[Rfam]
RNA sequence: CCUCCCGCUUCCCCUCCCUGAGCGGGACCCGGCCGAUUAUACGUGCCGGUAUUUCAGGCCCCAGCCUUCCUCCCCUUUGGCUGGGGCAUUUUAUU
Dot-bracket structure: ...((((((...........))))))..(((((...........)))))........((((((((..............))))))))........
Numbered sequence: 001c002c003u004c005c006c007g008c009u010u011c012c013c014c015u016c017c018c019u020g021a022g023c024g025g026g027a028c029c030c031g032g033c034c035g036a037u038u039a040u041a042c043g044u045g046c047c048g049g050u051a052u053u054u055c056a057g058g059c060c061c062c063a064g065c066c067u068u069c070c071u072c073c074c075c076u077u078u079g080g081c082u083g084g085g086g087c088a089u090u091u092u093a094u095u
Stems, first nucleotide, its partner, number of pairs: 004026006029049005058087008

Shown here is a 95-nucleotide RNA from Chitinimonas sp. BJB300, a member of the family "Burkholderia RNA 7 (anti-hemB)". The base pairs follow the family's consensus structure, which is taken from published work. For this family Rfam cites "Identification of small RNAs abundant in Burkholderia cenocepacia biofilms reveal putative regulators with a potential role in carbon and iron metabolism" (Sass et al., Sci Rep, 2017). From the family's description: This RNA motif was identified by computational search in b-proteobacteria Burkholderia. Co-purified with Hfq, expression confirmed by Northern blot.